[Rfam]
Rfam assigns this 85-nucleotide RNA from Hibiscus trionum to the family "Small nucleolar RNA snoR14".
The match comes from Rfam's covariance-model search (76 bits).
Rfam classes the family as a C/D-box small nucleolar RNA.
Taxonomically the source falls in Hibiscus (Eukaryota, Streptophyta, Pentapetalae, Malvaceae).
RNA sequence: GCGAUGUGAUGAUAGAAACUCAAUGCUCUUUGAAUUUACUGAUUCAAUUUGAUGUCACAUUGAAGUUCCGACAGGUUCUGAUCGC
Numbered sequence: 001g002c003g004a005u006g007u008g009a010u011g012a013u014a015g016a017a018a019c020u021c022a023a024u025g026c027u028c029u030u031u032g033a034a035u036u037u038a039c040u041g042a043u044u045c046a047a048u049u050u051g052a053u054g055u056c057a058c059a060u061u062g063a064a065g066u067u068c069c070g071a072c073a074g075g076u077u078c079u080g081a082u083c084g085c
Base pairs, nucleotide, nucleotide: 001085002084003083004082